[Rfam]
RNA: RAGATH-18 RNA
RNA sequence: CCUGUGGAGCGUCACAGCAAACGCGAGUAGCUAAGGCAAAAGCGGACGCGGCGAAGCAGGAA
Numbered sequence: 001c002c003u004g005u006g007g008a009g010c011g012u013c014a015c016a017g018c019a020a021a022c023g024c025g026a027g028u029a030g031c032u033a034a035g036g037c038a039a040a041a042g043c044g045g046a047c048g049c050g051g052c053g054a055a056g057c058a059g060g061a062a
Base pairs, nucleotide, nucleotide: 001060002059003058004057005056009049010048011047012046013045022044023043024042030037031036